[Rfam]
RNA sequence: AGAGGCCCUCUGCAGUUGGGGUAGAAUGCUUGCUUUGUAGCCAUGGCUACAAAGCAAGCAUUCCACCAGGCUGCUCACGCUGCCCGC
Numbered sequence: 001a002g003a004g005g006c007c008c009u010c011u012g013c014a015g016u017u018g019g020g021g022u023a024g025a026a027u028g029c030u031u032g033c034u035u036u037g038u039a040g041c042c043a044u045g046g047c048u049a050c051a052a053a054g055c056a057a058g059c060a061u062u063c064c065a066c067c068a069g070g071c072u073g074c075u076c077a078c079g080c081u082g083c084c085c086g087c
Base pairs, nucleotide, nucleotide: 004084005083006082012074013073014072015071016070017069020067021066022065024063025062026061027060028059029058030057031056032055033054037050038049039048040047041046